This 102-nucleotide sequence from Candidatus Fukatsuia symbiotica belongs to the Rfam family "Yersinia sRNA 190". Taxonomically the source falls in Candidatus Fukatsuia (Bacteria, Pseudomonadati, Pseudomonadota, Yersiniaceae). Rfam describes the family as follows. The sRNA was identified by and is confirmed to have a stable secondary structure by using genome-wide structure probing at different temperatures. The function is unknown. A reference for the family is Nuss et al. (2015), "Transcriptomic profiling of Yersinia pseudotuberculosis reveals reprogramming of the Crp regulon by temperature and uncovers Crp as a master regulator of small RNAs", PLoS Genet. The match comes from Rfam's covariance-model search (86 bits). It is annotated as a small RNA. The pairing is the family consensus, mapped onto this sequence.
RNA sequence: GCUAAUUGCUACGAUAUCAUUAUAAUGCUCGACCUUAACACCGAUUGUUAUAGCAAUCUCAUGGUAAAGGGGUGACAAAUCGGCCAUAUCGGGUUAUUUUGA
Number, nucleotide and partner (000 for none) at each position: 001g000002c000003u000004a000005a000006u000007u000008g028009c027010u000011a000012c000013g000014a023015u022016a021017u000018c000019a000020u000021u016022a015023u014024a000025a000026u000027g009028c008029u000030c000031g095032a094033c093034c092035u091036u000037a000038a000039c000040a000041c083042c082043g081044a080045u075046u074047g073048u072049u071050a000051u000052a000053g000054c000055a000056a000057u000058c000059u000060c000061a000062u000063g000064g000065u000066a000067a000068a000069g000070g000071g049072g048073u047074g046075a045076c000077a000078a000079a000080u044081c043082g042083g041084c000085c000086a000087u000088a000089u000090c000091g035092g034093g033094u032095u031096a000097u000098u000099u000100u000101g000102a000